[Rfam]
Nucleotides: 075
Base pairs, nucleotide, nucleotide: 001066002065003064004063
Number, partner (000 for none) and nucleotide at each position: 001066u002065g003064g004063a005000a006000a007000u008000g009000a010000g011000g012000a013000c014000a015000a016000a017000a018000a019000a020000c021000a022000a023000u024000g025000u026000c027000u028000u029000g030000a031000u032000a033000u034000a035000u036000u037000c038000a039000u040000g041000a042000a043000g044000a045000c046000u047000u048000c049000u050000a051000a052000u053000c054000c055000a056000a057000c058000u059000c060000u061000g062000a063004u064003c065002c066001a067000g068000c069000u070000g071000a072000a073000u074000g075000c
Rfam assigns this 75-nucleotide sequence from Menidia menidia to the family "Small nucleolar RNA SNORD19". A search with the family's covariance model found it, with a score of 36 bits. Its family is annotated with RNA processing and nucleolus in the Gene Ontology. The literature on the family includes a 2001 paper in EMBO J by Huttenhofer et al., "RNomics: an experimental approach that identifies 201 candidates for novel, small, non-messenger RNAs in mouse".